Shown here is a 106-nucleotide RNA from Naematelia encephala, a member of the family "Small nucleolar RNA Z13/snr52".
The match comes from Rfam's covariance-model search (79 bits).
The organism belongs to Naematelia, within Eukaryota.
Its family is annotated with RNA processing and nucleolus in the Gene Ontology.
The family's consensus secondary structure was predicted with PFOLD.
RNA sequence: UUGCCUUUUAUGAUGAAGCAUUUUUCGGAUGUAAUUGCCUUCGGGCUAUGUCCGAGAGCGCAAAACCCAUGUGGACACCUCCGUUGCCUUCCUUCUGAUCCUUUCA
Numbered sequence: 001u002u003g004c005c006u007u008u009u010a011u012g013a014u015g016a017a018g019c020a021u022u023u024u025u026c027g028g029a030u031g032u033a034a035u036u037g038c039c040u041u042c043g044g045g046c047u048a049u050g051u052c053c054g055a056g057a058g059c060g061c062a063a064a065a066c067c068c069a070u071g072u073g074g075a076c077a078c079c080u081c082c083g084u085u086g087c088c089u090u091c092c093u094u095c096u097g098a099u100c101c102u103u104u105c106a
Stems, first nucleotide, its partner, number of pairs: 003105001026083004